[Rfam]
RNA sequence: UCGAGCGAAAUGCUCAAAUUCAAAGCGGAGGAACCAAUUUUUGGGGCGAAUCUUAAACAUGAGUUUGAGAAAGACACCUUCCAGUCUUAGCCCGUCAGCUAACUCCGUCGGCAAUGGGAGGAUGACUU
Numbered sequence: 001u002c003g004a005g006c007g008a009a010a011u012g013c014u015c016a017a018a019u020u021c022a023a024a025g026c027g028g029a030g031g032a033a034c035c036a037a038u039u040u041u042u043g044g045g046g047c048g049a050a051u052c053u054u055a056a057a058c059a060u061g062a063g064u065u066u067g068a069g070a071a072a073g074a075c076a077c078c079u080u081c082c083a084g085u086c087u088u089a090g091c092c093c094g095u096c097a098g099c100u101a102a103c104u105c106c107g108u109c110g111g112c113a114a115u116g117g118g119a120g121g122a123u124g125a126c127u128u
Stems, first nucleotide, its partner, number of pairs: 011113004019023001025108006035043002044093003052069004072087004
Background: The family of this 128-nucleotide sequence from Pseudanabaenaceae cyanobacterium LEGE 13415 is "c-di-AMP riboswitch aptamer (ydaO/yuaA leader)". Rfam describes the family as follows. This family represents a conserved RNA structure found upstream of the ydaO and yuaA genes in Bacillus subtilis and related genes in other bacteria. Rfam links the family to the GO terms cyclic-di-AMP binding and regulation of gene expression.